[Rfam]
RNA sequence: GGAAACCACUAGGGGCGCCCGCAAGGGCUGAGAUAAAGCGCCGAACGCUUUGGUCCCUUUGAACCUGAUCUGGGUCAUGCCAGCGUAGGAAAGUGGAAUGGUACGUAC
Numbered sequence: 001g002g003a004a005a006c007c008a009c010u011a012g013g014g015g016c017g018c019c020c021g022c023a024a025g026g027g028c029u030g031a032g033a034u035a036a037a038g039c040g041c042c043g044a045a046c047g048c049u050u051u052g053g054u055c056c057c058u059u060u061g062a063a064c065c066u067g068a069u070c071u072g073g074g075u076c077a078u079g080c081c082a083g084c085g086u087a088g089g090a091a092a093g094u095g096g097a098a099u100g101g102u103a104c105g106u107a108c
Stems, first nucleotide, its partner, number of pairs: 006096005011058004016052001017028004035051005064089004070083004
TPP riboswitch aptamer (THI element): a 108-nucleotide RNA sequence from Paenibacillus sp. 32O-W.
Taxonomically the source falls in Paenibacillus (Bacteria, Bacillati, Bacilli, Caryophanales).
A search with the family's covariance model found it, with a score of 85 bits.